This 201-nucleotide RNA sequence from Kazachstania africana belongs to the Rfam family "Small nucleolar RNA snR43".
It scores 94 bits against the family's covariance model.
Its Rfam clan is "SNORA9 clan".
The organism belongs to Kazachstania africana, within Eukaryota.
RNA sequence: AUCUCCUACUUCUGCCCCACGUUCGUAUUGUCUCCAUGGAAUAAUGGGUUCUGUUUAAGGAGAAGAUAAAGCUGGCAGAGAUGACUGUUCUUUAAACUGAUACAAUUAUAACGGUUUUUCUCUGUUGGGCUAUCGUGUAUAUUGUCUAUGAUUUGGAUUAGUUCACGUGUAAUCCAUAUUAAUAGGUGUAUGCAUACAUUU
Numbered sequence: 001a002u003c004u005c006c007u008a009c010u011u012c013u014g015c016c017c018c019a020c021g022u023u024c025g026u027a028u029u030g031u032c033u034c035c036a037u038g039g040a041a042u043a044a045u046g047g048g049u050u051c052u053g054u055u056u057a058a059g060g061a062g063a064a065g066a067u068a069a070a071g072c073u074g075g076c077a078g079a080g081a082u083g084a085c086u087g088u089u090c091u092u093u094a095a096a097c098u099g100a101u102a103c104a105a106u107u108a109u110a111a112c113g114g115u116u117u118u119u120c121u122c123u124g125u126u127g128g129g130c131u132a133u134c135g136u137g138u139a140u141a142u143u144g145u146c147u148a149u150g151a152u153u154u155g156g157a158u159u160a161g162u163u164c165a166c167g168u169g170u171a172a173u174c175c176a177u178a179u180u181a182a183u184a185g186g187u188g189u190a191u192g193c194a195u196a197c198a199u200u201u
Base pairs, nucleotide, nucleotide: 003062004061005060006059016048017047018046019045021042022041023040024039072128073127074126075125076124077123078122079121080120081119083117084115085114086113087112088111089110091108137193138192139191140190143188144187145186146185147184157179158178161175